[Rfam]
RNA sequence: ACUAUGGAGUGUUAUAUCAAAUGAAAGUAGUUUUAUAGAACAAAAUCAGACACAUUGAAGUAGUAA
Numbered sequence: 001a002c003u004a005u006g007g008a009g010u011g012u013u014a015u016a017u018c019a020a021a022u023g024a025a026a027g028u029a030g031u032u033u034u035a036u037a038g039a040a041c042a043a044a045a046u047c048a049g050a051c052a053c054a055u056u057g058a059a060g061u062a063g064u065a066a
Stems, first nucleotide, its partner, number of pairs: 001064005009053005022048003030041003
About this RNA: Rfam assigns this 66-nucleotide sequence from Clostridium argentinense to the family "RAGATH-18 RNA". The family's RNA type in Rfam is small RNA. The source organism's lineage runs through Bacteria, Bacillati, Bacillota, Clostridiaceae and Clostridium argentinense. The match comes from Rfam's covariance-model search (76 bits).